[Rfam]
RNA sequence: UUCUUAUCAAGAGAGGUGGAGGGACAGGCCCUGUGAAACCCAGCAACCAGUAUAUUAUUUAUAUACAAGGUGCUAAAUCCUGCAGUACGUUACUGAAAGAUAAGUA
Dot-bracket structure: (.((((((....(.(((...(((.[[[[)))......))))((((.((.((((.........))))..))))))...(]]]](((((...)))))..))))))).)
SAM riboswitch aptamer (S box leader): a 106-nucleotide sequence from Romboutsia sp. CE17.
The organism belongs to Romboutsia, within Bacteria.
Rfam links the family to the GO term regulation of gene expression.
A search with the family's covariance model found it, with a score of 91 bits.
Pairs were carried over by alignment from the consensus structure, which is taken from published work.